A member of the RNA family "mir-4662 microRNA precursor family" from Homo sapiens, 67 nucleotides long.

RNA sequence: UCUAUUUAGCCAAUUGUCUAUCUUUAGGCAUUCAGAAUAGCUAAAGAUGGACAAUUGGCUAAAUAGA
Numbered sequence: 001u002c003u004a005u006u007u008a009g010c011c012a013a014u015u016g017u018c019u020a021u022c023u024u025u026a027g028g029c030a031u032u033c034a035g036a037a038u039a040g041c042u043a044a045a046g047a048u049g050g051a052c053a054a055u056u057g058g059c060u061a062a063a064u065a066g067a
Stems, first nucleotide, its partner, number of pairs: 001067018020048008030038003
Dot-bracket structure: ((((((((((((((((((.((((((((..(((...)))..)))))))).))))))))))))))))))
Rfam 15.1 lists 8 matches to the family in 4 species.